RNA sequence: CCGCAGGGACGGCCCUGCGGCUGCUUACGAACCGGGGACGGCCUC
Number, nucleotide and partner (000 for none) at each position: 001c020002c019003g018004c017005a016006g015007g014008g013009a000010c000011g000012g000013c008014c007015c006016u005017g004018c003019g002020g001021c000022u000023g000024c000025u000026u000027a000028c000029g000030a000031a000032c000033c000034g045035g044036g043037g042038a000039c000040g000041g000042c037043c036044u035045c034